[Rfam]
Annotation:
This 352-nucleotide RNA sequence from Marinobacterium nitratireducens belongs to the Rfam family "Bacterial RNase P class A". NCBI's taxonomy places the organism under Bacteria, Pseudomonadati, Gammaproteobacteria, Oceanospirillales, Marinobacterium.

RNA sequence: GGAGUUCGCCAGGCAGUCGCUGCUGCGUUCGCGCAGGGGAGGAAAGUCCGGGCUCCAUAGGGCAGAGUGCCAGAUAACGUCUGGGCGGCGUAAGCCGACGGCCAGUGCAACAGAGAGCAGACCGCCUAAGCAUCUUCGGAUGCCGGUAAGGGUGAAAGGGUGCGGUAAGAGCGCACCGCGUGGGUGGCAACAUUCCACGGCACGGUAAACCCCACUCGGAGCAAGACCAAAUAGGGACCCUUAAGGCGUGGCCCGCGCCGGGUCCGGGUAGGUUGCUAAAGGUGUCCGGUGACGGCCACCGUAGAUGAAUGACUGUCCACGACAGAACCCGGCUUACAGGCGGGCUCCUCCA
Numbered sequence: 001g002g003a004g005u006u007c008g009c010c011a012g013g014c015a016g017u018c019g020c021u022g023c024u025g026c027g028u029u030c031g032c033g034c035a036g037g038g039g040a041g042g043a044a045a046g047u048c049c050g051g052g053c054u055c056c057a058u059a060g061g062g063c064a065g066a067g068u069g070c071c072a073g074a075u076a077a078c079g080u081c082u083g084g085g086c087g088g089c090g091u092a093a094g095c096c097g098a099c100g101g102c103c104a105g106u107g108c109a110a111c112a113g114a115g116a117g118c119a120g121a122c123c124g125c126c127u128a129a130g131c132a133u134c135u136u137c138g139g140a141u142g143c144c145g146g147u148a149a150g151g152g153u154g155a156a157a158g159g160g161u162g163c164g165g166u167a168a169g170a171g172c173g174c175a176c177c178g179c180g181u182g183g184g185u186g187g188c189a190a191c192a193u194u195c196c197a198c199g200g201c202a203c204g205g206u207a208a209a210c211c212c213c214a215c216u217c218g219g220a221g222c223a224a225g226a227c228c229a230a231a232u233a234g235g236g237a238c239c240c241u242u243a244a245g246g247c248g249u250g251g252c253c254c255g256c257g258c259c260g261g262g263u264c265c266g267g268g269u270a271g272g273u274u275g276c277u278a279a280a281g282g283u284g285u286c287c288g289g290u291g292a293c294g295g296c297c298a299c300c301g302u303a304g305a306u307g308a309a310u311g312a313c314u315g316u317c318c319a320c321g322a323c324a325g326a327a328c329c330c331g332g333c334u335u336a337c338a339g340g341c342g343g344g345c346u347c348c349u350c351c352a
Stems, first nucleotide, its partner, number of pairs: 001348010012317007020039002023036005044335003048332005053221004060254004065217005070084005085099001086097004100212002105210002107206002122151002124147003130143005159177006178201001179199005184193003225274004235265006245259005281300004286295003